Histone 3' UTR stem-loop: a 46-nucleotide RNA sequence from Microcaecilia unicolor.
Gene Ontology term of the family: mRNA 3'-end processing by stem-loop binding and cleavage.
Taxonomically the source falls in Microcaecilia (Eukaryota, Vertebrata, Gymnophiona, Siphonopidae).
It is annotated as a cis-regulatory element.
For this family Rfam cites "The sequence of the stem and flanking sequences at the 3' end of histone mRNA are critical determinants for the binding of the stem-loop binding protein" (Williams and Marzluff, Nucleic Acids Res, 1995).

RNA sequence: CAAAAGGCUCUUUUCAGAGCCACCUACUUUUUCUCGUAAAGUGCCA
Dot-bracket structure: .....((((((....)))))).........................